Manganese Mn2+ riboswitch aptamer (yybP-ykoY): a 186-nucleotide RNA from Rhizorhabdus dicambivorans. The match comes from Rfam's covariance-model search (58 bits).
RNA sequence: ACCCCCGUCAUCCGGGGAGUAGCCGGCCGUCCUCCGGGGUGGGAAUCGCGUCAACAUGCUUGGGUGAGAGCCCAUGGCGCGAUCAGGGUUCCAAAGAAUCCUGGCAAGACCGAUGACACCGCGACCUCGCCUGCCGGGCGGGGGGCGUGGUGUCGUCCGUCGAACCGUCCGCCCGGCCUGGAAUCA
Numbered sequence: 001a002c003c004c005c006c007g008u009c010a011u012c013c014g015g016g017g018a019g020u021a022g023c024c025g026g027c028c029g030u031c032c033u034c035c036g037g038g039g040u041g042g043g044a045a046u047c048g049c050g051u052c053a054a055c056a057u058g059c060u061u062g063g064g065u066g067a068g069a070g071c072c073c074a075u076g077g078c079g080c081g082a083u084c085a086g087g088g089u090u091c092c093a094a095a096g097a098a099u100c101c102u103g104g105c106a107a108g109a110c111c112g113a114u115g116a117c118a119c120c121g122c123g124a125c126c127u128c129g130c131c132u133g134c135c136g137g138g139c140g141g142g143g144g145g146c147g148u149g150g151u152g153u154c155g156u157c158c159g160u161c162g163a164a165c166c167g168u169c170c171g172c173c174c175g176g177c178c179u180g181g182a183a184u185c186a
Stems, first nucleotide, its partner, number of pairs: 027042003045083009061074005087185007